[Rfam]
Rfam assigns this 80-nucleotide RNA from Eubacterium coprostanoligenes to the family "S10-Clostridia ribosomal protein leader". Taxonomically the source falls in Eubacterium (Bacteria, Bacillota, Clostridia, Eubacteriales). It is annotated as a cis-regulatory leader.
RNA sequence: UGAUAUGCGAUGAUGUUGGAGGUUGCGCUGAACCCGGCGGUAAUUUCAACGGAGUAUGUCCGAGUUUUAAACACGGGCGA
Numbered sequence: 001u002g003a004u005a006u007g008c009g010a011u012g013a014u015g016u017u018g019g020a021g022g023u024u025g026c027g028c029u030g031a032a033c034c035c036g037g038c039g040g041u042a043a044u045u046u047c048a049a050c051g052g053a054g055u056a057u058g059u060c061c062g063a064g065u066u067u068u069a070a071a072c073a074c075g076g077g078c079g080a
Base pairs, nucleotide, nucleotide: 015050016049017048019047020046021045022044026039027038028037029036030035059080060079064078065077066076067075